[Rfam]
RNA sequence: GCCCAGUGAAGAAGAAUUCCCAAAAGAUAGGAAGUGCCGUAUGACACUUUAAAUGCAGCGGCGAA
Number, nucleotide and partner (000 for none) at each position: 001g000002c000003c000004c000005a000006g000007u000008g000009a000010a000011g000012a000013a000014g059015a000016a000017u000018u000019c000020c000021c000022a000023a000024a000025a000026g000027a000028u000029a000030g000031g050032a049033a048034g047035u046036g045037c000038c000039g000040u000041a000042u000043g000044a000045c036046a035047c034048u033049u032050u031051a000052a000053a000054u000055g000056c000057a000058g000059c014060g000061g000062c000063g000064a000065a000
Small nucleolar RNA U49: a 65-nucleotide RNA sequence from Raphanus sativus.
Gene Ontology terms of the family: nucleolus and RNA processing.
Its Rfam clan is "SNORD49 clan".
Lineage of the source: Eukaryota > Spermatophyta > Mesangiospermae > rosids > Raphanus.
The literature on the family includes a 2001 paper in RNA by Brown et al., "Multiple snoRNA gene clusters from Arabidopsis".
The match comes from Rfam's covariance-model search (58 bits).
The family has 5 seed sequences and 340 matches in Rfam 15.1.